[Rfam]
RNA sequence: UUAAAUAUUUGGCAUACUCUCCGAAAGGUGAGGACGCAAAGCUAUAGGGUCUAAAUAAUUUUAUUAUAUGACAGCCAGUUGCGAAU
Numbered sequence: 001u002u003a004a005a006u007a008u009u010u011g012g013c014a015u016a017c018u019c020u021c022c023g024a025a026a027g028g029u030g031a032g033g034a035c036g037c038a039a040a041g042c043u044a045u046a047g048g049g050u051c052u053a054a055a056u057a058a059u060u061u062u063a064u065u066a067u068a069u070g071a072c073a074g075c076c077a078g079u080u081g082c083g084a085a086u
Stems, first nucleotide, its partner, number of pairs: 012037002017032003021028002040080004047076002049072003056066004